The record is a 109-nucleotide RNA sequence from Senna tora, which matches "Small nucleolar RNA Z152/R70/R12/" in Rfam. The base pairs follow the family's consensus structure, which was predicted with PFOLD. A reference for the family is Barneche et al. (2001), "Identification of 66 box C/D snoRNAs in Arabidopsis thaliana: extensive gene duplications generated multiple isoforms predicting new ribosomal RNA 2'-O-methylation sites", J Mol Biol. Rfam links the family to the GO terms RNA processing and nucleolus.

[Rfam]
RNA sequence: AGUGCAAUGAUGAUAUGAAAACACUUGGACGUGUUUUGGGGCAGUGGACGGAACCAUUAGGUUUCGCCGUGAGCUCAUCUUUAAACGACUUCUCCUUCCACUGAGCACU
Numbered sequence: 001a002g003u004g005c006a007a008u009g010a011u012g013a014u015a016u017g018a019a020a021a022c023a024c025u026u027g028g029a030c031g032u033g034u035u036u037u038g039g040g041g042c043a044g045u046g047g048a049c050g051g052a053a054c055c056a057u058u059a060g061g062u063u064u065c066g067c068c069g070u071g072a073g074c075u076c077a078u079c080u081u082u083a084a085a086c087g088a089c090u091u092c093u094c095c096u097u098c099c100a101c102u103g104a105g106c107a108c109u
Base pairs, nucleotide, nucleotide: 001109002108003107004106005105
NCBI's taxonomy places the organism under Eukaryota, Euphyllophyta, eudicotyledons, rosids, Senna. The family's RNA type in Rfam is C/D-box small nucleolar RNA. It scores 88 bits against the family's covariance model. The family has 9 seed sequences and 604 matches in Rfam 15.1.